[Rfam]
RNA: sul1 RNA
Organism: Devosia sp. I507
RNA sequence: GUCGGACCCGCGCCUGCGGGUGGCUUCUCCGGGCGCCUAUCCCCCGGUCACCU
Numbered sequence: 001g002u003c004g005g006a007c008c009c010g011c012g013c014c015u016g017c018g019g020g021u022g023g024c025u026u027c028u029c030c031g032g033g034c035g036c037c038u039a040u041c042c043c044c045c046g047g048u049c050a051c052c053u
Stems, first nucleotide, its partner, number of pairs: 006021006029047005